[Rfam]
Nucleotides: 083
Base pairs, nucleotide, nucleotide: 007077008076009075010074011073012072013071020028021027022026030063031062032061033059034058037057038056039055043051044050
Number, partner (000 for none) and nucleotide at each position: 001000g002000a003000u004000a005000g006000c007077g008076u009075a010074a011073c012072g013071g014000g015000a016000g017000a018000g019000a020028c021027c022026a023000u024000u025000u026022u027021g028020g029000c030063g031062c032061c033059g034058a035000a036000g037057g038056a039055g040000c041000a042000a043051c044050c045000u046000c047000c048000c049000c050044g051043g052000a053000a054000a055039c056038u057037c058034u059033c060000a061032g062031g063030c064000a065000a066000a067000a068000g069000g070000a071013c072012c073011g074010u075009u076008a077007c078000c079000g080000u081000a082000a083000u